[Rfam]
RNA: tRNA
RNA sequence: GUGGUUUUAGCUCAGUUGGUUAGAGCGCCUGAUUGUGGUUCAGGAGGUCGUGGGUUCGAGCCCCAUAUUCCACC
Numbered sequence: 001g002u003g004g005u006u007u008u009a010g011c012u013c014a015g016u017u018g019g020u021u022a023g024a025g026c027g028c029c030u031g032a033u034u035g036u037g038g039u040u041c042a043g044g045a046g047g048u049c050g051u052g053g054g055u056u057c058g059a060g061c062c063c064c065a066u067a068u069u070c071c072a073c074c
Base pairs, nucleotide, nucleotide: 001073002072003071004070007067010026011025012024013023028044029043030042031041032040050066051065052064053063054062